Rfam assigns this 74-nucleotide RNA sequence from Halopiger xanaduensis to the family "S15-Halobacteria ribosomal protein leader".
The source organism's lineage runs through Archaea, Methanobacteriota, Halobacteriales, Natrialbaceae and Halopiger xanaduensis.
The base pairs follow the family's consensus structure, which is taken from published work.
It is annotated as a cis-regulatory leader.
Its Rfam clan is "Ribosomal Protein S15 Leader clan".
RNA sequence: GUGGGAAGCGCACGGCCGCAAAUCUGACUGCGUCACCGACUGCUAUUCGAGGUGACUUGGGAUUGCGGAAGUGC
Numbered sequence: 001g002u003g004g005g006a007a008g009c010g011c012a013c014g015g016c017c018g019c020a021a022a023u024c025u026g027a028c029u030g031c032g033u034c035a036c037c038g039a040c041u042g043c044u045a046u047u048c049g050a051g052g053u054g055a056c057u058u059g060g061g062a063u064u065g066c067g068g069a070a071g072u073g074c
Stems, first nucleotide, its partner, number of pairs: 010074004016068006024061002032056006